[Rfam]
RNA sequence: GGGCGUAAUUCGGCAAGGCUGAUUGCUGAUCUGGACCCGGGGGCGGUACCCGGCAGCUCCACCACAAGUGCACGUUGGAAAGUGCAUUUUUGCUGGGGCUGAAAUAGGAUCGACAGGCAGACAAAAGGCCAAGACGCGCUCCGGCUAGAUACCACCGUUAUCGGUUCAACGUUUGUAAAUGCAAACACCAAAGCAGUCGUUGCUGAUAACGACAAUGAUUGGGUAGCUGCGAAA
Numbered sequence: 001g002g003g004c005g006u007a008a009u010u011c012g013g014c015a016a017g018g019c020u021g022a023u024u025g026c027u028g029a030u031c032u033g034g035a036c037c038c039g040g041g042g043g044c045g046g047u048a049c050c051c052g053g054c055a056g057c058u059c060c061a062c063c064a065c066a067a068g069u070g071c072a073c074g075u076u077g078g079a080a081a082g083u084g085c086a087u088u089u090u091u092g093c094u095g096g097g098g099c100u101g102a103a104a105u106a107g108g109a110u111c112g113a114c115a116g117g118c119a120g121a122c123a124a125a126a127g128g129c130c131a132a133g134a135c136g137c138g139c140u141c142c143g144g145c146u147a148g149a150u151a152c153c154a155c156c157g158u159u160a161u162c163g164g165u166u167c168a169a170c171g172u173u174u175g176u177a178a179a180u181g182c183a184a185a186c187a188c189c190a191a192a193g194c195a196g197u198c199g200u201u202g203c204u205g206a207u208a209a210c211g212a213c214a215a216u217g218a219u220u221g222g223g224u225a226g227c228u229g230c231g232a233a234a
Stems, first nucleotide, its partner, number of pairs: 001141005017130003027119002031116003037053005054101007142157003
The record is a 234-nucleotide sequence from Labrenzia sp. OB1, which matches "permuted transfer-messenger RNA" in Rfam. Taxonomically the source falls in Labrenzia (Bacteria, Pseudomonadota, Alphaproteobacteria, Stappiaceae). About the family: Bacterial tmRNA, also known as 10Sa RNA or SsrA, is named for its dual tRNA and mRNA-like properties. Its role is to liberate the mRNA from a stalled ribosome. To accomplish this part of the tmRNA is used as a reading frame that ends in a translation stop signal. The broken mRNA is replaced in the ribosome by the tmRNA and translation of the tmRNA leads to addition of a proteolysis tag to the incomplete protein enabling recognition by a protease. The sequence is in the family's curated seed alignment. It is annotated as a non-coding RNA gene. For this family Rfam cites "Probing the structure of the Escherichia coli 10Sa RNA (tmRNA)" (Felden et al., RNA, 1997).